[Rfam]
RNA sequence: CUGGGUGUGGCUCAGCUUGGUAGAGCGCUAGAAUGGGGUUCUAGAGGUCGCAGGUUCAAUUCCUGUCACCCAGA
Numbered sequence: 001c002u003g004g005g006u007g008u009g010g011c012u013c014a015g016c017u018u019g020g021u022a023g024a025g026c027g028c029u030a031g032a033a034u035g036g037g038g039u040u041c042u043a044g045a046g047g048u049c050g051c052a053g054g055u056u057c058a059a060u061u062c063c064u065g066u067c068a069c070c071c072a073g074a
Stems, first nucleotide, its partner, number of pairs: 001073007010026004028044005050066005
A member of the RNA family "tRNA" from Anaerotalea alkaliphila, 74 nucleotides long.
A search with the family's covariance model found it, with a score of 63 bits.